[Rfam]
RNA sequence: AAGUAAUCAUGCGACUGGCGAAUAAUGGAAUUAACCAUAGGGAGCAUGAUUAUGGGAAAGAUAUCGAUCGCCUGGGUAAAACAA
Numbered sequence: 001a002a003g004u005a006a007u008c009a010u011g012c013g014a015c016u017g018g019c020g021a022a023u024a025a026u027g028g029a030a031u032u033a034a035c036c037a038u039a040g041g042g043a044g045c046a047u048g049a050u051u052a053u054g055g056g057a058a059a060g061a062u063a064u065c066g067a068u069c070g071c072c073u074g075g076g077u078a079a080a081a082c083a084a
Stems, first nucleotide, its partner, number of pairs: 003053010015041002017072005025038004062078004
RNA: ZMP/ZTP riboswitch aptamer (pfl RNA motif)
Organism: Clostridium sp. N3C